[Rfam]
RNA sequence: AGCUUAAUGAUGAUUGUCUUUGCAAUUGCUUGAAGCAAUAUGAAAAACACAUUUCACCGGCUCUGAAAGCU
Number, nucleotide and partner (000 for none) at each position: 001a071002g070003c069004u068005u067006a000007a000008u000009g000010a000011u000012g000013a000014u000015u000016g000017u000018c000019u000020u000021u000022g000023c000024a000025a000026u000027u000028g000029c000030u000031u000032g000033a000034a000035g000036c000037a000038a000039u000040a000041u000042g000043a000044a000045a000046a000047a000048c000049a000050c000051a000052u000053u000054u000055c000056a000057c000058c000059g000060g000061c000062u000063c000064u000065g000066a000067a005068a004069g003070c002071u001